[Rfam]
RNA sequence: GGGGAUCUACGGAGCCCUAUAACCUUGGGUCUGCACUGUCAGACCCAUCCAAUGACGGAAGACAGAAA
Dot-bracket structure: ((((.(.(...).)))))........(((((((......)))))))......................
Description:
L2-Alphaproteobacteria ribosomal protein leader: a 68-nucleotide RNA sequence from Pseudorhodobacter sp. PARRP1. A reference for the family is Eckert and Weinberg (2020), "Discovery of 20 novel ribosomal leader candidates in bacteria and archaea", BMC Microbiol. The base pairs follow the family's consensus structure, which is taken from published work.